[Rfam]
RNA sequence: UGCUUACCAAUGAUGUUUUAAAAUAAUGUCUGAACUAAUGAAUUGCCAGUGAUAUUACUUUAGUACUGAGGUAAGCC
Numbered sequence: 001u002g003c004u005u006a007c008c009a010a011u012g013a014u015g016u017u018u019u020a021a022a023a024u025a026a027u028g029u030c031u032g033a034a035c036u037a038a039u040g041a042a043u044u045g046c047c048a049g050u051g052a053u054a055u056u057a058c059u060u061u062a063g064u065a066c067u068g069a070g071g072u073a074a075g076c077c
Stems, first nucleotide, its partner, number of pairs: 002076007